[Rfam]
RNA sequence: CGCCCGACCGGAUCCCGUGGGGGGAAUCCGUUGUCGGGGACAUGGGAAGCGCCCCGCUCGUCGAC
Numbered sequence: 001c002g003c004c005c006g007a008c009c010g011g012a013u014c015c016c017g018u019g020g021g022g023g024g025a026a027u028c029c030g031u032u033g034u035c036g037g038g039g040a041c042a043u044g045g046g047a048a049g050c051g052c053c054c055c056g057c058u059c060g061u062c063g064a065c
Stems, first nucleotide, its partner, number of pairs: 001063002003039001004037004009030005014024003044054003

Record summary:
The record is a 65-nucleotide RNA from Streptomyces sp. CC53, which matches "Streptomyces RNA 2736" in Rfam. A reference for the family is Vockenhuber et al. (2011), "Deep sequencing-based identification of small non-coding RNAs in Streptomyces coelicolor", RNA Biol. A search with the family's covariance model found it, with a score of 65 bits. From the family's description: Identified by deep sequencing of transcriptome at the end of exponential growth phase. Appears smaller on northern blot than sequencing transcript. This indicates processing step. By type it is a small RNA. Pairs were carried over by alignment from the consensus structure.